[Rfam]
RNA: mir-1302 microRNA precursor family
Organism: Bos grunniens
RNA sequence: GUUUUAGUGUAAGUGUGUUCCAUGCUAUGUUUGGGACAUACUUACACUACAA
Number, nucleotide and partner (000 for none) at each position: 001g000002u000003u000004u000005u000006a048007g047008u046009g045010u044011a043012a042013g000014u040015g039016u038017g000018u036019u035020c034021c033022a031023u000024g000025c000026u000027a000028u000029g000030u000031u022032u000033g021034g020035g019036a018037c000038a016039u015040a014041c000042u012043u011044a010045c009046a008047c007048u006049a000050c000051a000052a000